[Rfam]
The record is a 121-nucleotide RNA sequence from Alteromonas australica, which matches "Histidine operon leader" in Rfam. Rfam's curators write: At least 6 amino acid operons are known to be regulated by attenuation. Lineage of the source: Bacteria > Gammaproteobacteria > Alteromonadales > Alteromonadaceae > Alteromonas. On this family, see Kolter and Yanofsky, Annu Rev Genet 1982: "Attenuation in amino acid biosynthetic operons". Rfam links the family to the GO term histidine biosynthetic process.
RNA sequence: ACAUCACCAUCACCACAUAGCAUAACCUUUCAGGUUCGUGCUGGAAGGUCUAUAUUUCCUUCCAGUGGCGCAGAUACCAAAUUCUCGGCCCUCGGAAGGAAACUUCCGGGGGUUUUUCAUU
Numbered sequence: 001a002c003a004u005c006a007c008c009a010u011c012a013c014c015a016c017a018u019a020g021c022a023u024a025a026c027c028u029u030u031c032a033g034g035u036u037c038g039u040g041c042u043g044g045a046a047g048g049u050c051u052a053u054a055u056u057u058c059c060u061u062c063c064a065g066u067g068g069c070g071c072a073g074a075u076a077c078c079a080a081a082u083u084c085u086c087g088g089c090c091c092u093c094g095g096a097a098g099g100a101a102a103c104u105u106c107c108g109g110g111g112g113u114u115u116u117u118c119a120u121u
Stems, first nucleotide, its partner, number of pairs: 008040003012035003020031001041065008087114012
By type it is a cis-regulatory leader. The family's consensus secondary structure is taken from published work.